The family of this 52-nucleotide sequence from Tursiops truncatus is "mir-1302 microRNA precursor family".
[Rfam]
RNA sequence: UUUUUAGUACAAAUAUGUCCCAUUCAAUUUUGGGGACAUACCUGUACUAAAA
Numbered sequence: 001u002u003u004u005u006a007g008u009a010c011a012a013a014u015a016u017g018u019c020c021c022a023u024u025c026a027a028u029u030u031u032g033g034g035g036a037c038a039u040a041c042c043u044g045u046a047c048u049a050a051a052a
Base pairs, nucleotide, nucleotide: 006048007047008046009045010044011043014040015039016038018036019035020034021033022031
The organism belongs to Tursiops, within Eukaryota. It scores 64 bits against the family's covariance model. A reference for the family is Morin et al. (2008), "Application of massively parallel sequencing to microRNA profiling and discovery in human embryonic stem cells", Genome Res.